[Rfam]
RNA sequence: UCGUGCUAGAUGGGGAGUUAGCGGUGCCCUGUACCUGCAAUCCGCUACAGCAGGGUCGAAUUCCGAAACCAGGUGUUUUUCUUUUGGUGUCGACCAAGAAAAGUGGCGUUGAAGAUUGGGUCUUGCGCGACAAAUCCCCAUAAACCCCGCCAGAUCCGGGAGGAAGCAACGGUACGUGGGGCUCUUUGGGUGCCGUGAGGGUGCCUGAUUUGAGUUAACUGUCUUGGAUACAGCCAGGUGGAAAUAUCGAAUUUCGGUGCACGA
Numbered sequence: 001u002c003g004u005g006c007u008a009g010a011u012g013g014g015g016a017g018u019u020a021g022c023g024g025u026g027c028c029c030u031g032u033a034c035c036u037g038c039a040a041u042c043c044g045c046u047a048c049a050g051c052a053g054g055g056u057c058g059a060a061u062u063c064c065g066a067a068a069c070c071a072g073g074u075g076u077u078u079u080u081c082u083u084u085u086g087g088u089g090u091c092g093a094c095c096a097a098g099a100a101a102a103g104u105g106g107c108g109u110u111g112a113a114g115a116u117u118g119g120g121u122c123u124u125g126c127g128c129g130a131c132a133a134a135u136c137c138c139c140a141u142a143a144a145c146c147c148c149g150c151c152a153g154a155u156c157c158g159g160g161a162g163g164a165a166g167c168a169a170c171g172g173u174a175c176g177u178g179g180g181g182c183u184c185u186u187u188g189g190g191u192g193c194c195g196u197g198a199g200g201g202u203g204c205c206u207g208a209u210u211u212g213a214g215u216u217a218a219c220u221g222u223c224u225u226g227g228a229u230a231c232a233g234c235c236a237g238g239u240g241g242a243a244a245u246a247u248c249g250a251a252u253u254u255c256g257g258u259g260c261a262c263g264a
Stems, first nucleotide, its partner, number of pairs: 001264006009057003012030004017025003034054005063257006072248005079242003083238006093229001094227006105216003113211009122199006128190001131188004136181006147172003155164003
RNA: Bacterial large signal recognition particle RNA
Organism: Atribacter laminatus